[Rfam]
6S / SsrS RNA: a 184-nucleotide RNA from Brevibacillus sp. WF146.
The organism belongs to Brevibacillus, within Bacteria.
Rfam classes the family as a non-coding RNA gene.
E. coli 6S RNA was the first non coding RNA to be sequenced, but its function was unknown until recently. It consists of 184 nucleotides that fold into an extended hairpin structure with a large single-stranded internal bulge. The 6S RNA specifically associates with RNA polymerase holoenzyme containing the sigma70 specificity factor.
A search with the family's covariance model found it, with a score of 88 bits.

RNA sequence: AUAGCCCUGCGAUGUACGUGACUUCCGAAUAGUUUUGAGCCACAAACUCUUUUCAGGGAGUUUGCCGUCCCAAACCGCGAGGACAUGCCUCCGUCGAGUGGACGUCCGGGACGGUUGGGCGAGACACCCACCUGCGCAGCGCAGGUUCAAAACUUCAGGAGCAGCACGGCAUAAUGGGGCUCCU
Numbered sequence: 001a002u003a004g005c006c007c008u009g010c011g012a013u014g015u016a017c018g019u020g021a022c023u024u025c026c027g028a029a030u031a032g033u034u035u036u037g038a039g040c041c042a043c044a045a046a047c048u049c050u051u052u053u054c055a056g057g058g059a060g061u062u063u064g065c066c067g068u069c070c071c072a073a074a075c076c077g078c079g080a081g082g083a084c085a086u087g088c089c090u091c092c093g094u095c096g097a098g099u100g101g102a103c104g105u106c107c108g109g110g111a112c113g114g115u116u117g118g119g120c121g122a123g124a125c126a127c128c129c130a131c132c133u134g135c136g137c138a139g140c141g142c143a144g145g146u147u148c149a150a151a152a153c154u155u156c157a158g159g160a161g162c163a164g165c166a167c168g169g170c171a172u173a174a175u176g177g178g179g180c181u182c183c184u
Stems, first nucleotide, its partner, number of pairs: 003181007012172004017168003031154004036149006056129003060125004071118001073116005083105002088101002091098001